Rfam assigns this 340-nucleotide part of an RNA from Porphyromonas macacae to the family "Bacterial large subunit ribosomal RNA". NCBI's taxonomy places the organism under Bacteria, Bacteroidota, Bacteroidia, Porphyromonadaceae, Porphyromonas. The match comes from Rfam's covariance-model search (2721 bits). For this family Rfam cites "Crystal structure of the ribosome at 5.5 A resolution" (Yusupov et al., Science, 2001). Pairs were carried over by alignment from the consensus structure, which is taken from published work.
RNA sequence: CGAGAUAUUCGCGGUUAAGGAACUAGGCAAAAUGGUCCUGUAACUUCGGGAUAAAGGACGCCACUGGUUUUAUCAGUGGCCGCAGAGAAUAGGCCCAGGCGACUGUUUAACAAAAACACAAGGCUGUGCUAAAUAGAAAUAUUAUGUAUACAGUCUGACACCUGCCCGGUGCUGGAAGGUUAAGAGGAGAAGUCAUCAGCAAUGAGAAGCUUUGAAUUGAAGCCCCAGUAAACGGCGGCCGUAACUAUAACGGUCCUAAGGUAGCGAAAUUCCUUGUCGGGUAAGUUCCGACCUGCACGAAUGGUGUAACGAUCUGGGCACUGUCUCAACCGCGAGCUCG
Numbered sequence: 001c002g003a004g005a006u007a008u009u010c011g012c013g014g015u016u017a018a019g020g021a022a023c024u025a026g027g028c029a030a031a032a033u034g035g036u037c038c039u040g041u042a043a044c045u046u047c048g049g050g051a052u053a054a055a056g057g058a059c060g061c062c063a064c065u066g067g068u069u070u071u072a073u074c075a076g077u078g079g080c081c082g083c084a085g086a087g088a089a090u091a092g093g094c095c096c097a098g099g100c101g102a103c104u105g106u107u108u109a110a111c112a113a114a115a116a117c118a119c120a121a122g123g124c125u126g127u128g129c130u131a132a133a134u135a136g137a138a139a140u141a142u143u144a145u146g147u148a149u150a151c152a153g154u155c156u157g158a159c160a161c162c163u164g165c166c167c168g169g170u171g172c173u174g175g176a177a178g179g180u181u182a183a184g185a186g187g188a189g190a191a192g193u194c195a196u197c198a199g200c201a202a203u204g205a206g207a208a209g210c211u212u213u214g215a216a217u218u219g220a221a222g223c224c225c226c227a228g229u230a231a232a233c234g235g236c237g238g239c240c241g242u243a244a245c246u247a248u249a250a251c252g253g254u255c256c257u258a259a260g261g262u263a264g265c266g267a268a269a270u271u272c273c274u275u276g277u278c279g280g281g282u283a284a285g286u287u288c289c290g291a292c293c294u295g296c297a298c299g300a301a302u303g304g305u306g307u308a309a310c311g312a313u314c315u316g317g318g319c320a321c322u323g324u325c326u327c328a329a330c331c332g333c334g335a336g337c338u339c340g
Stems, first nucleotide, its partner, number of pairs: 001340004009335008018326003035059005044049001060080009081085001093319007100311002104118003121156008129146001132143004159306004164236003169233002171229005178224003184218002189213005196205002237255006256260001266293001276292006